[Rfam]
The family of this 138-nucleotide RNA sequence from Vulpes vulpes is "small Cajal body-specific RNA 17". scaRNAs are a specific class of small nuclear RNAs which localise to the Cajal bodies and guide the modification of RNA polymerase II transcribed spliceosomal RNAs U1, U2, U4, U5 and U12. The complete human U12-22/U4-8 scaRNA is composed of two tandem C/D box domains (termed U12-22 and U4-8). On this family, see Darzacq et al., EMBO J 2002: "Cajal body-specific small nuclear RNAs: a novel class of 2'-O-methylation and pseudouridylation guide RNAs". The family's RNA type in Rfam is small Cajal body RNA. The base pairs follow the family's consensus structure, which is taken from published work. NCBI's taxonomy places the organism under Eukaryota, Bilateria, Gnathostomata, Laurasiatheria, Vulpes.

RNA sequence: UCCCCAAGCCCCCAAUGUAGCCCCCUCGUGAGCUCGCGGUAUUUUCCUUAAAUGAUUGAGCUCCGCUUGGCAUAGCUGACCUGGAGCCUGAGAGGAUUAUGAAAACGUGUGGGAUGUGGGGUAAGGUGGGGCUGGGGA
Numbered sequence: 001u002c003c004c005c006a007a008g009c010c011c012c013c014a015a016u017g018u019a020g021c022c023c024c025c026u027c028g029u030g031a032g033c034u035c036g037c038g039g040u041a042u043u044u045u046c047c048u049u050a051a052a053u054g055a056u057u058g059a060g061c062u063c064c065g066c067u068u069g070g071c072a073u074a075g076c077u078g079a080c081c082u083g084g085a086g087c088c089u090g091a092g093a094g095g096a097u098u099a100u101g102a103a104a105a106c107g108u109g110u111g112g113g114a115u116g117u118g119g120g121g122u123a124a125g126g127u128g129g130g131g132c133u134g135g136g137g138a
Base pairs, nucleotide, nucleotide: 001138002137003136005135007133008132009131010130011129012126013125020122021121022120023119024118056091057090058089060087061086063084064083069080071078072077